This 256-nucleotide sequence from Hibiscus syriacus belongs to the Rfam family "Early nodulin 40".
It is annotated as a non-coding RNA gene.

[Rfam]
RNA sequence: UUGGAACUGAUAGCAUCCGUCCAUGGGGUUUUAACAAACGCAUAUUAGGUGGCGGAGGGUUUGGAGGUUUCGGAUUCCCCCGAUCCUCACCCUCUGCCACCGAAAACUGUUUGCCUUUGCUUAGACCGAUAGCUCGGCCUAAACAGAAAACACCGUGCGCAUGGAAGAUAUAUAUCUGAAGAGGAGGGUUUUUGGCUAAUGCAAAGGCAAAUCGGCAAGUCACGAGAAGGGCAAUGAACUCAUGUCUACGAGUCUU
Dot-bracket structure: ..................................................(.............................................)...........((((((..............((....................................................................))......)))))).........................((((........))))...
Overview: For this family Rfam cites "Identification of conserved secondary structures and expansion segments in enod40 RNAs reveals new enod40 homologues in plants" (Gultyaev and Roussis, Nucleic Acids Res, 2007). Gene Ontology term of the family: nodulation. The family's consensus secondary structure is taken from published work. Rfam 15.1 lists 341 matches to the family in 193 species.